RNA sequence: AGGUCGUACCAGGUACUGUGAUUGGACACUGACGCAGAGUCAACUAGCCUUGUUCGAGCGCGUCUUCGCGCGUUGCGCCAGGGCGGUUCGAGCCACGAGGGGGGAGGCUCGAACCGCCCAUU
Numbered sequence: 001a002g003g004u005c006g007u008a009c010c011a012g013g014u015a016c017u018g019u020g021a022u023u024g025g026a027c028a029c030u031g032a033c034g035c036a037g038a039g040u041c042a043a044c045u046a047g048c049c050u051u052g053u054u055c056g057a058g059c060g061c062g063u064c065u066u067c068g069c070g071c072g073u074u075g076c077g078c079c080a081g082g083g084c085g086g087u088u089c090g091a092g093c094c095a096c097g098a099g100g101g102g103g104g105a106g107g108c109u110c111g112a113a114c115c116g117c118c119c120a121u122u
Stems, first nucleotide, its partner, number of pairs: 002007001012048001014046002018029003030042004055072002058069003073080001082118013096103001
This 122-nucleotide RNA from Streptomyces sp. So13.3 belongs to the Rfam family "Streptomyces RNA 3920". For this family Rfam cites "Deep sequencing-based identification of small non-coding RNAs in Streptomyces coelicolor" (Vockenhuber et al., RNA Biol, 2011). By type it is a small RNA. The source organism's lineage runs through Bacteria, Bacillati, Actinomycetota, Actinomycetes and Streptomyces. Pairs were carried over by alignment from the consensus structure.